Small nucleolar RNA SNORA24: a 130-nucleotide RNA from Rattus norvegicus. From the family's description: ACA24 is a member of the H/ACA class of snoRNA that guide the sites of modification of uridines to pseudouridines. The family's consensus secondary structure was predicted with RNAfold. Gene Ontology terms of the family: nucleolus and RNA processing.
[Rfam]
RNA sequence: AUCCAUGUAUCUUUGGGACCUGCCUCCUGUGGCAGUCUCCCUUCCUAGCCAUGGAAGAGCAUGUUCUUGUUAUUGGCAAAGCUGUCACCAUUUCAUUGGUUCCAGGUUCUGACUUGAGCAAGUAACAUUC
Numbered sequence: 001a002u003c004c005a006u007g008u009a010u011c012u013u014u015g016g017g018a019c020c021u022g023c024c025u026c027c028u029g030u031g032g033c034a035g036u037c038u039c040c041c042u043u044c045c046u047a048g049c050c051a052u053g054g055a056a057g058a059g060c061a062u063g064u065u066c067u068u069g070u071u072a073u074u075g076g077c078a079a080a081g082c083u084g085u086c087a088c089c090a091u092u093u094c095a096u097u098g099g100u101u102c103c104a105g106g107u108u109c110u111g112a113c114u115u116g117a118g119c120a121a122g123u124a125a126c127a128u129u130c
Base pairs, nucleotide, nucleotide: 002055003054004053005052006051007050015041016040017039018038020035021034022033023032024031068127069126070125071124073121074120075119077116078115079114082105083104084103087100088099089098090097
Lineage of the source: Eukaryota > Vertebrata > Rodentia > Myomorpha > Rattus.